[Rfam]
RNA sequence: UUCGUUUAUCCUAUUUAGUUGCUUUUAUUCAAUUGAUCGUUGAGAGGUUACUGGUAGGACGGAAGUAGGUUCAUCCGAAGAAACGCACU
Numbered sequence: 001u002u003c004g005u006u007u008a009u010c011c012u013a014u015u016u017a018g019u020u021g022c023u024u025u026u027a028u029u030c031a032a033u034u035g036a037u038c039g040u041u042g043a044g045a046g047g048u049u050a051c052u053g054g055u056a057g058g059a060c061g062g063a064a065g066u067a068g069g070u071u072c073a074u075c076c077g078a079a080g081a082a083a084c085g086c087a088c089u
Base pairs, nucleotide, nucleotide: 003085004084005083006082007081009059010058011057012056013055014054015053062086068076069075
RNA: Glutamine riboswitch aptamer (glnA leader)